[Rfam]
RNA: HNH endonuclease-associated RNA and ORF (HEARO) RNA
Organism: Pyrinomonas methylaliphatogenes
RNA sequence: GUCAUAGACCCCACAGCUAAAGCCGGGGGCUUGAAGGUGCCUGAGAGCCUUCAGCGCAGGCCGGUACCUAUGACCAGCCCGAGCGCCGGAGCCCGAAGGACAAGGGCGAUGAAGGCGCUACGUUCUGUGGGUGAUGGCACCCUGGGGUGCUUCUCCAGCUCCAGGCCCUGCCGCCUGCGGUUAAACAGCGAGCUGGGGGUGUAAGCGAGCCGUGCCACAGGCGUAAAAAGCCCACGGAACAUGGGCGAGGAGAGAUGC
Numbered sequence: 001g002u003c004a005u006a007g008a009c010c011c012c013a014c015a016g017c018u019a020a021a022g023c024c025g026g027g028g029g030c031u032u033g034a035a036g037g038u039g040c041c042u043g044a045g046a047g048c049c050u051u052c053a054g055c056g057c058a059g060g061c062c063g064g065u066a067c068c069u070a071u072g073a074c075c076a077g078c079c080c081g082a083g084c085g086c087c088g089g090a091g092c093c094c095g096a097a098g099g100a101c102a103a104g105g106g107c108g109a110u111g112a113a114g115g116c117g118c119u120a121c122g123u124u125c126u127g128u129g130g131g132u133g134a135u136g137g138c139a140c141c142c143u144g145g146g147g148u149g150c151u152u153c154u155c156c157a158g159c160u161c162c163a164g165g166c167c168c169u170g171c172c173g174c175c176u177g178c179g180g181u182u183a184a185a186c187a188g189c190g191a192g193c194u195g196g197g198g199g200u201g202u203a204a205g206c207g208a209g210c211c212g213u214g215c216c217a218c219a220g221g222c223g224u225a226a227a228a229a230g231c232c233c234a235c236g237g238a239a240c241a242u243g244g245g246c247g248a249g250g251a252g253a254g255a256u257g258c
Stems, first nucleotide, its partner, number of pairs: 001074007010029002012026001016023002030060004077246005082119005122240011137171002141165008149256001151254006173222005179216003185213002188210002192206003